[Rfam]
RNA sequence: CCGAGUCCCGACGCACUCCCCCCGGCGUCGGGACUCUCCCCGAGCCGGGCUUCGGCGCCCUUCCCCUUGGUGCUGAAGCCCGGCUCUUCC
Numbered sequence: 001c002c003g004a005g006u007c008c009c010g011a012c013g014c015a016c017u018c019c020c021c022c023c024g025g026c027g028u029c030g031g032g033a034c035u036c037u038c039c040c041c042g043a044g045c046c047g048g049g050c051u052u053c054g055g056c057g058c059c060c061u062u063c064c065c066c067u068u069g070g071u072g073c074u075g076a077a078g079c080c081c082g083g084c085u086c087u088u089c090c
Stems, first nucleotide, its partner, number of pairs: 005034006012027003042086010053075007
Rfam assigns this 90-nucleotide RNA sequence from Streptomyces colonosanans to the family "Streptomyces RNA 3202". Taxonomically the source falls in Streptomyces (Bacteria, Bacillati, Actinomycetes, Streptomycetaceae). The match comes from Rfam's covariance-model search (75 bits). Rfam describes the family as follows. Identified by deep sequencing of transcriptome at the end of exponential growth phase. Pairs were carried over by alignment from the consensus structure.